[Rfam]
RNA sequence: AAUUUUUUCUUCAAUAAAGAACACUCAUGUCGAUGAAAUUAUUUGAAACCUUU
Dot-bracket structure: ..........((.(((...........))).))....................